[Rfam]
This 101-nucleotide RNA sequence from Caldinitratiruptor microaerophilus belongs to the Rfam family "SAM riboswitch aptamer (S box leader)". NCBI's taxonomy places the organism under Bacteria, Bacillota, Clostridia, Symbiobacteriaceae, Caldinitratiruptor. Rfam's curators write: The SAM riboswitch is found upstream of a number of genes which code for proteins involved in methionine or cysteine biosynthesis in Gram-positive bacteria.

RNA sequence: CUCUUAUCGAGAGAGGUGGAGGGACUGGCCCGAUGAAGCCCGGCAACCCAGGGGCAGCGCCCCAGGCUGUCCCUGAAGGUGCCAAUUCCCGCAGAUAAGAG
Numbered sequence: 001c002u003c004u005u006a007u008c009g010a011g012a013g014a015g016g017u018g019g020a021g022g023g024a025c026u027g028g029c030c031c032g033a034u035g036a037a038g039c040c041c042g043g044c045a046a047c048c049c050a051g052g053g054g055c056a057g058c059g060c061c062c063c064a065g066g067c068u069g070u071c072c073c074u075g076a077a078g079g080u081g082c083c084a085a086u087u088c089c090c091g092c093a094g095a096u097a098a099g100a101g
Stems, first nucleotide, its partner, number of pairs: 001101008013041001015040003021031003027089002042083004047079002049075010087093001